Notes
This 108-nucleotide sequence from Arachis hypogaea belongs to the Rfam family "Plant small nucleolar RNA R71". A search with the family's covariance model found it, with a score of 49 bits.

RNA sequence: GAGCACAUCAGGAGGACAUCUCUUGAUCAAUCGCUUGUAUCUUUCCCAAGCUUCGUAGAGGGAUUCACCCUCUUUUUGUCUAAAGGUUUAAACUUCCACCCUGAGUUU
Numbered sequence: 001g002a003g004c005a006c007a008u009c010a011g012g013a014g015g016a017c018a019u020c021u022c023u024u025g026a027u028c029a030a031u032c033g034c035u036u037g038u039a040u041c042u043u044u045c046c047c048a049a050g051c052u053u054c055g056u057a058g059a060g061g062g063a064u065u066c067a068c069c070c071u072c073u074u075u076u077u078g079u080c081u082a083a084a085g086g087u088u089u090a091a092a093c094u095u096c097c098a099c100c101c102u103g104a105g106u107u108u
Base pairs, nucleotide, nucleotide: 001108003106004105006103007102058075059074061072
Rfam 15.1 lists 278,378 matches to the family in 216 species. A reference for the family is Brown et al. (2003), "Plant snoRNAs: functional evolution and new modes of gene expression", Trends Plant Sci. NCBI's taxonomy places the organism under Eukaryota, Magnoliopsida, Gunneridae, Fabales, Arachis. The family's consensus secondary structure was predicted with PFOLD.